Overview
This 75-nucleotide RNA from Drosophila pseudoobscura belongs to the Rfam family "mir-310 microRNA precursor family". Rfam 15.1 lists 60 matches to the family in 29 species. Its Rfam clan is "mir-92 microRNA precursor clan". Taxonomically the source falls in Sophophora (Eukaryota, Eumetazoa, Brachycera, Cyclorrhapha). Gene Ontology terms of the family: head involution, miRNA-mediated post-transcriptional gene silencing and compound eye morphogenesis. Pairs were carried over by alignment from the consensus structure, which was predicted with RNAalifold.
RNA sequence: AUACCUUCAAGCUGGGGGAUGGGCAAUACUGUGUUGUAUUUCACCAGUAUUGCACACCCACUGGCCUGAAAGUGC
Dot-bracket structure: .(((.((...(.((..(..((.(..(((((...............)))))..).))..)..)).)...)).))).
Numbered sequence: 001a002u003a004c005c006u007u008c009a010a011g012c013u014g015g016g017g018g019a020u021g022g023g024c025a026a027u028a029c030u031g032u033g034u035u036g037u038a039u040u041u042c043a044c045c046a047g048u049a050u051u052g053c054a055c056a057c058c059c060a061c062u063g064g065c066c067u068g069a070a071a072g073u074g075c
Stems, first nucleotide, its partner, number of pairs: 002074003006070002011065001013063002017059001020056002023053001026050005